c-di-GMP-I riboswitch aptamer: an 88-nucleotide RNA sequence from Texcoconibacillus texcoconensis. A search with the family's covariance model found it, with a score of 69 bits. Taxonomically the source falls in Texcoconibacillus (Bacteria, Bacillota, Caryophanales, Bacillaceae). Pairs were carried over by alignment from the consensus structure, which is taken from published work.

[Rfam]
RNA sequence: UUUAAUAAUAGGCAAACGGCUUGAAAAAGUCGGACGCAAAGCUUUAGGGGCUAUAGCUGUAAAAACGGUAUGCCAGCCAGCUGCACGU
Numbered sequence: 001u002u003u004a005a006u007a008a009u010a011g012g013c014a015a016a017c018g019g020c021u022u023g024a025a026a027a028a029g030u031c032g033g034a035c036g037c038a039a040a041g042c043u044u045u046a047g048g049g050g051c052u053a054u055a056g057c058u059g060u061a062a063a064a065a066c067g068g069u070a071u072g073c074c075a076g077c078c079a080g081c082u083g084c085a086c087g088u
Base pairs, nucleotide, nucleotide: 012037013036017032018031019030020029021028022027040082041081042080043079047078048077049074050073051072057068058067059066060065